[Rfam]
RNA sequence: CGAGUAAGCCAGACAAUCGCUGCUGACUUUUGUCAGGAGAGGAAAGUCCGAGCUCCGUAGGGCAGGGUGCUGGGUAACUCCCAGUGGAGGCGACUCUAAGGAUAGUGCAACAGAAAUAUACCGCCAGAAUCUAGUUAAUACUAGAUGAGUGCAGUGAAAACUGCCUGGUAAGGGUGGAAAGGUGAGGUAAGGGCUCACCAGCGCUAGGGUGAUCUAGUGGCUCUGUAAACCCCACCUGGAGCAAGACCGAAUAGGAAGACAAAUGGGGCUGCCCGUCCCGUCUUCGGGUGUGUCGCUGGAGCCUGUAUGGUAACAACAGGCCUAGAUAGAUGAUUGUCAAAUACAGAACUCGGCUUAUAGACUUAUCUCGCCAC
Numbered sequence: 001c002g003a004g005u006a007a008g009c010c011a012g013a014c015a016a017u018c019g020c021u022g023c024u025g026a027c028u029u030u031u032g033u034c035a036g037g038a039g040a041g042g043a044a045a046g047u048c049c050g051a052g053c054u055c056c057g058u059a060g061g062g063c064a065g066g067g068u069g070c071u072g073g074g075u076a077a078c079u080c081c082c083a084g085u086g087g088a089g090g091c092g093a094c095u096c097u098a099a100g101g102a103u104a105g106u107g108c109a110a111c112a113g114a115a116a117u118a119u120a121c122c123g124c125c126a127g128a129a130u131c132u133a134g135u136u137a138a139u140a141c142u143a144g145a146u147g148a149g150u151g152c153a154g155u156g157a158a159a160a161c162u163g164c165c166u167g168g169u170a171a172g173g174g175u176g177g178a179a180a181g182g183u184g185a186g187g188u189a190a191g192g193g194c195u196c197a198c199c200a201g202c203g204c205u206a207g208g209g210u211g212a213u214c215u216a217g218u219g220g221c222u223c224u225g226u227a228a229a230c231c232c233c234a235c236c237u238g239g240a241g242c243a244a245g246a247c248c249g250a251a252u253a254g255g256a257a258g259a260c261a262a263a264u265g266g267g268g269c270u271g272c273c274c275g276u277c278c279c280g281u282c283u284u285c286g287g288g289u290g291u292g293u294c295g296c297u298g299g300a301g302c303c304u305g306u307a308u309g310g311u312a313a314c315a316a317c318a319g320g321c322c323u324a325g326a327u328a329g330a331u332g333a334u335u336g337u338c339a340a341a342u343a344c345a346g347a348a349c350u351c352g353g354c355u356u357a358u359a360g361a362c363u364u365a366u367c368u369c370g371c372c373a374c
Stems, first nucleotide, its partner, number of pairs: 001370004005365004010360001011358001012338007020039002023036005044356003048353005053241004060274004065237005070084005085099001086097004100232002105230002107226003121173002123169005181199006201221001202219007245294003255285006265279005301321006308315002

Bacterial RNase P class A: a 374-nucleotide sequence from Clostridium amylolyticum. The family's consensus secondary structure is taken from published work. Rfam links the family to the GO terms tRNA processing, ribonuclease P activity and dimeric ribonuclease P complex. It scores 294 bits against the family's covariance model. Rfam classes the family as a ribozyme.